This 73-nucleotide RNA from Aerococcus sanguinicola belongs to the Rfam family "tRNA".
RNA sequence: GGAGGAUUAGCUCAGCUGGGAGAGCGUCUGCCUUACAAGCAGGAUGUCGGGGGUUCGAACCCCUCAUCCUCCA
Numbered sequence: 001g002g003a004g005g006a007u008u009a010g011c012u013c014a015g016c017u018g019g020g021a022g023a024g025c026g027u028c029u030g031c032c033u034u035a036c037a038a039g040c041a042g043g044a045u046g047u048c049g050g051g052g053g054u055u056c057g058a059a060c061c062c063c064u065c066a067u068c069c070u071c072c073a
Stems, first nucleotide, its partner, number of pairs: 001072007010025004027043005049065005

The family's RNA type in Rfam is transfer RNA.
Rfam's curators write: Transfer RNA (tRNA) molecules are approximately 80 nucleotides in length.
The base pairs follow the family's consensus structure, which is taken from published work.